This 78-nucleotide RNA from Scyliorhinus torazame belongs to the Rfam family "bZIP non canonical Hac1/Xbp1 intron". Pairs were carried over by alignment from the consensus structure, which was predicted with RNAfold. The family has 112 seed sequences and 1,325 matches in Rfam 15.1. bZIP intron RNA is a non-canonical intron that was first reported in HAC1 gene in yeast and XBP1 gene in Metazoa.
RNA sequence: UGGCAGCUGGGUCCGCUGAGUCCGCAGCACUCAGACUACGUGUGCCUCUGCAGCAGGUGCAGGCCCAAAUGUGUGCCA
Numbered sequence: 001u002g003g004c005a006g007c008u009g010g011g012u013c014c015g016c017u018g019a020g021u022c023c024g025c026a027g028c029a030c031u032c033a034g035a036c037u038a039c040g041u042g043u044g045c046c047u048c049u050g051c052a053g054c055a056g057g058u059g060c061a062g063g064c065c066c067a068a069a070u071g072u073g074u075g076c077c078a
Stems, first nucleotide, its partner, number of pairs: 001078005006072002009066005016034006043059005